[Rfam]
RNA: Bacterial large subunit ribosomal RNA, nucleotides 966 to 1518
RNA sequence: CUCCUCGAAAUAGCUUUAGGGCUAGCGUCGCGUAGUAGCAUACGGGGGUAGAGCUCUGUAAAGGACUGGGGGGAGCAAUCCUACCCACCCUUAACAAACUACGAAUACCGUAUGUGUAAUCGCGGCAGUUAGAACGUCGGGGCUAAGCUCGGCGCUCGAAAGGGAAACAGCCCAGACCAUCGUCUAAGGUCCCUAAAUUAACACUAAGUGGGAAACAAGGUGAGAUUUCUUAAACAGCUAGGAUGUUGGCUUAGAAGCAGCCAUUCAUUUAAAGAGUGCGUAACAGCUCACUAGUCAAGAGAUCUUGCGUGGAAAAUGUAACGGGGCUAAGUGUUAUACCGAAGACAUGGAUGCCACCAGUACAGUAAACAUCUAACGUAGAAAAGCUACAUUUUCUCCGCCACCCGGAAGGGCUGUCGGUCAAAAUAGCUCCGCCAAGGCGGAUAACCUACGAUCAUGAGGUGUUUAGUGUACUGGUGGCGUGGUAGAGGAGCGUUCCUAUCUGCGGUGAAGCAGUUUUGGAAAGAAUUGUGGAGCGUUAGGAAGUGAGAAU
Dot-bracket structure: ((((((....(((((....))))).(((((((...(.((((((((.....(((...(((.((((...((((((.....)))).))...)))).)))..)).).....))))))))...).)))))).)...((.(((((((......))))))).))....(((......)))...((((.(((...(((......(.((((((...........((..((((((((((.......(((((.(((..(((.........)))...)))(...)(...((......)).).)))))...)))))))))).))...................))))))))))...)))))))((((((((((((((.........................................................................................................))))))))))))))....))))))(.((((((..(((......((((((((....))))))))...))).))))))..).....
Numbered sequence: 001c002u003c004c005u006c007g008a009a010a011u012a013g014c015u016u017u018a019g020g021g022c023u024a025g026c027g028u029c030g031c032g033u034a035g036u037a038g039c040a041u042a043c044g045g046g047g048g049u050a051g052a053g054c055u056c057u058g059u060a061a062a063g064g065a066c067u068g069g070g071g072g073g074a075g076c077a078a079u080c081c082u083a084c085c086c087a088c089c090c091u092u093a094a095c096a097a098a099c100u101a102c103g104a105a106u107a108c109c110g111u112a113u114g115u116g117u118a119a120u121c122g123c124g125g126c127a128g129u130u131a132g133a134a135c136g137u138c139g140g141g142g143c144u145a146a147g148c149u150c151g152g153c154g155c156u157c158g159a160a161a162g163g164g165a166a167a168c169a170g171c172c173c174a175g176a177c178c179a180u181c182g183u184c185u186a187a188g189g190u191c192c193c194u195a196a197a198u199u200a201a202c203a204c205u206a207a208g209u210g211g212g213a214a215a216c217a218a219g220g221u222g223a224g225a226u227u228u229c230u231u232a233a234a235c236a237g238c239u240a241g242g243a244u245g246u247u248g249g250c251u252u253a254g255a256a257g258c259a260g261c262c263a264u265u266c267a268u269u270u271a272a273a274g275a276g277u278g279c280g281u282a283a284c285a286g287c288u289c290a291c292u293a294g295u296c297a298a299g300a301g302a303u304c305u306u307g308c309g310u311g312g313a314a315a316a317u318g319u320a321a322c323g324g325g326g327c328u329a330a331g332u333g334u335u336a337u338a339c340c341g342a343a344g345a346c347a348u349g350g351a352u353g354c355c356a357c358c359a360g361u362a363c364a365g366u367a368a369a370c371a372u373c374u375a376a377c378g379u380a381g382a383a384a385a386g387c388u389a390c391a392u393u394u395u396c397u398c399c400g401c402c403a404c405c406c407g408g409a410a411g412g413g414c415u416g417u418c419g420g421u422c423a424a425a426a427u428a429g430c431u432c433c434g435c436c437a438a439g440g441c442g443g444a445u446a447a448c449c450u451a452c453g454a455u456c457a458u459g460a461g462g463u464g465u466u467u468a469g470u471g472u473a474c475u476g477g478u479g480g481c482g483u484g485g486u487a488g489a490g491g492a493g494c495g496u497u498c499c500u501a502u503c504u505g506c507g508g509u510g511a512a513g514c515a516g517u518u519u520u521g522g523a524a525a526g527a528a529u530u531g532u533g534g535a536g537c538g539u540u541a542g543g544a545a546g547u548g549a550g551a552a553u
Stems, first nucleotide, its partner, number of pairs: 001493006011024005026128001027126006036119001038115008051102001052100002057096003061092004068085002070082004132157002135154007162173003177350004182346003188340003197337001199336006216311002220308010237295005243268003248262003269273001274289001278287002351483014494548001496545006504538003513532008